[Rfam]
RNA sequence: AAGAAAACGAGAUACGUUUUUGAUGUGUCUGUCGUUGAUAAACAAGCAGAGGAAGAACAAGAUGGCGAGAUAUCGUUUCAGUCGCCAUUUCCUUGAUUGGCGAUUCGAUUGUUGCUCCUCUACAU
Dot-bracket structure: .....(..(.((((((.......))))))..)..)............................((.(((..((((.....(((((((.((....)).))))))).)))).....)))..))....